[Rfam]
RNA: MIR8024 microRNA precursor family
RNA sequence: UUGAAGAAUUUGAAGACUUCAACUUGUAGACUUAAAGAAUUUGAAGACUUCAACUUGCAAACUUAAAGAUUUCAACUUGCAAAC
Dot-bracket structure: (((.((...(((((..(((.(...((((...((.(((..........))).))..))))....).)))..))))).)).)))..